[Rfam]
The record is a 72-nucleotide RNA from Mycolicibacterium chitae, which matches "tRNA" in Rfam. The match comes from Rfam's covariance-model search (68 bits). Rfam links the family to the GO term triplet codon-amino acid adaptor activity. The family has 954 seed sequences and 5,335,975 matches in Rfam 15.1. Rfam classes the family as a transfer RNA. Clan: tRNA clan. Pairs were carried over by alignment from the consensus structure, which is taken from published work. NCBI's taxonomy places the organism under Bacteria, Bacillati, Actinomycetota, Mycobacteriaceae, Mycobacterium (subgen. Mycolicibacterium).
RNA sequence: GCCUCCGUAGCUCAGUGGUAGAGCACUCGCCUUGUAAGCGAAAGGUCGUCAGUUCAAUCCUGACCGGGGGCU
Numbered sequence: 001g002c003c004u005c006c007g008u009a010g011c012u013c014a015g016u017g018g019u020a021g022a023g024c025a026c027u028c029g030c031c032u033u034g035u036a037a038g039c040g041a042a043a044g045g046u047c048g049u050c051a052g053u054u055c056a057a058u059c060c061u062g063a064c065c066g067g068g069g070g071c072u
Base pairs, nucleotide, nucleotide: 001071002070003069004068005067006066007065010024011023012022013021027041028040029039030038048064049063050062051061052060
Dot-bracket structure: (((((((..((((.......))))..((((.......))))......(((((.......)))))))))))).